[Rfam]
RNA sequence: UAUAACACCAGAUUCAAAAAAAGACUGCGUUCAUGCUUGCAUGAAAACGCAGUCUUUUUUAUGAAUCGCCAAAAUAUGAGAAAAUAGCCCGAUAGGGUGGUUUUCGAAUAUUUUGUAGAAUUGCGAGAGUUCGAAGAACGUAGCAAUUCGUGUUAUA
Numbered sequence: 001u002a003u004a005a006c007a008c009c010a011g012a013u014u015c016a017a018a019a020a021a022a023g024a025c026u027g028c029g030u031u032c033a034u035g036c037u038u039g040c041a042u043g044a045a046a047a048c049g050c051a052g053u054c055u056u057u058u059u060u061a062u063g064a065a066u067c068g069c070c071a072a073a074a075u076a077u078g079a080g081a082a083a084a085u086a087g088c089c090c091g092a093u094a095g096g097g098u099g100g101u102u103u104u105c106g107a108a109u110a111u112u113u114u115g116u117a118g119a120a121u122u123g124c125g126a127g128a129g130u131u132c133g134a135a136g137a138a139c140g141u142a143g144c145a146a147u148u149c150g151u152g153u154u155a156u157a
Stems, first nucleotide, its partner, number of pairs: 001157007013065004019059003022055009031044005070115008080105004087098004118149007129139004
The family of this 157-nucleotide sequence is "Clostridiales-1 RNA".